[Rfam]
RNA sequence: GAAUCACGGUUGAAACAAGAUUUACCAUGAGAAGUCAGCAGACGCCAUAGUACCCCGGCUAGUCGACAAACCGGGGGAAGGGC
Numbered sequence: 001g002a003a004u005c006a007c008g009g010u011u012g013a014a015a016c017a018a019g020a021u022u023u024a025c026c027a028u029g030a031g032a033a034g035u036c037a038g039c040a041g042a043c044g045c046c047a048u049a050g051u052a053c054c055c056c057g058g059c060u061a062g063u064c065g066a067c068a069a070a071c072c073g074g075g076g077g078a079a080g081g082g083c
Base pairs, nucleotide, nucleotide: 001022002021004020005019008016010014034043035042036041044083045082046081053076054075055074056073057072058071
The record is an 83-nucleotide RNA from Cohnella sp. CIP 111063, which matches "Group II catalytic intron D1-D4-1" in Rfam. It scores 56 bits against the family's covariance model. The source organism's lineage runs through Bacteria, Bacilli, Caryophanales, Paenibacillaceae and Cohnella. For this family Rfam cites "The ins and outs of group II introns" (Bonen and Vogel, Trends Genet, 2001).